[Rfam]
RNA: mir-7 microRNA precursor family
RNA sequence: CCGUCCUCUACCACGUGGAAGACUAGUGAUUUUGUUGUUUCAUCAACAACAAUCUUUAGUCUACUGCACGGUUGAUGGAU
Numbered sequence: 001c002c003g004u005c006c007u008c009u010a011c012c013a014c015g016u017g018g019a020a021g022a023c024u025a026g027u028g029a030u031u032u033u034g035u036u037g038u039u040u041c042a043u044c045a046a047c048a049a050c051a052a053u054c055u056u057u058a059g060u061c062u063a064c065u066g067c068a069c070g071g072u073u074g075a076u077g078g079a080u
Stems, first nucleotide, its partner, number of pairs: 004077001008074001011071002015067004020062005026057001028054002031052002034050006